[Rfam]
Rfam assigns this 361-nucleotide RNA sequence from Alteromonadaceae bacterium M269 to the family "Bacterial RNase P class A".
The family's RNA type in Rfam is ribozyme.
The family's consensus secondary structure is taken from published work.
RNA sequence: GGAGUUGGCCAAGACAAUCGCCGCCUACAUGUAGGGGGAGGAAAGUCCGGGCUCCAAAGGGCAGGGUGCCAGGUAACACCUGGGCGGCGAAAGCCGACGACCAGUGCAGCAGAGAGUAUACCGCCUAAGCGCUAGUAAUUUAUUAUUGGCGACGGUAAGGGUGAAAGGGUGCGGUAAGAGCGCACCGCGUCAUUGGUAACAAUGUACGGCACGGUAAACUCCACCCGGAGCAAGACCAAAUAGGAUCUCUAAUGGCGUUGCCCGCGUUGAGAUCGGGUAGGUUGCUUGAGCCAGCGAGCGAUUGCUGGCCUAGAUGAAUGAUUGUCCUCGACAGAACCCGGCUUAGCGGCCAACUCCUUCC
Numbered sequence: 001g002g003a004g005u006u007g008g009c010c011a012a013g014a015c016a017a018u019c020g021c022c023g024c025c026u027a028c029a030u031g032u033a034g035g036g037g038g039a040g041g042a043a044a045g046u047c048c049g050g051g052c053u054c055c056a057a058a059g060g061g062c063a064g065g066g067u068g069c070c071a072g073g074u075a076a077c078a079c080c081u082g083g084g085c086g087g088c089g090a091a092a093g094c095c096g097a098c099g100a101c102c103a104g105u106g107c108a109g110c111a112g113a114g115a116g117u118a119u120a121c122c123g124c125c126u127a128a129g130c131g132c133u134a135g136u137a138a139u140u141u142a143u144u145a146u147u148g149g150c151g152a153c154g155g156u157a158a159g160g161g162u163g164a165a166a167g168g169g170u171g172c173g174g175u176a177a178g179a180g181c182g183c184a185c186c187g188c189g190u191c192a193u194u195g196g197u198a199a200c201a202a203u204g205u206a207c208g209g210c211a212c213g214g215u216a217a218a219c220u221c222c223a224c225c226c227g228g229a230g231c232a233a234g235a236c237c238a239a240a241u242a243g244g245a246u247c248u249c250u251a252a253u254g255g256c257g258u259u260g261c262c263c264g265c266g267u268u269g270a271g272a273u274c275g276g277g278u279a280g281g282u283u284g285c286u287u288g289a290g291c292c293a294g295c296g297a298g299c300g301a302u303u304g305c306u307g308g309c310c311u312a313g314a315u316g317a318a319u320g321a322u323u324g325u326c327c328u329c330g331a332c333a334g335a336a337c338c339c340g341g342c343u344u345a346g347c348g349g350c351c352a353a354c355u356c357c358u359u360c361c
Base pairs, nucleotide, nucleotide: 001357002356003355004354005353006352007351008350009349010348013326014325015324016323017322018321019320021038022037024035025034026033027032043344044343045342047341048340049339050338051337052230053229054228055227059263060262061261062260064226065225066224067223068222069083070082071081072080073079084098085096086095087094088093099221100220104219105218106215107214121160122159123156124155125154129153168186169185170184171183172182173181187210188208189207190206191204192203193202194201195200234283235282236281237280244274245273246272247271248270249269254268255267256266257265258264290309291308292307293306294305295304296303297302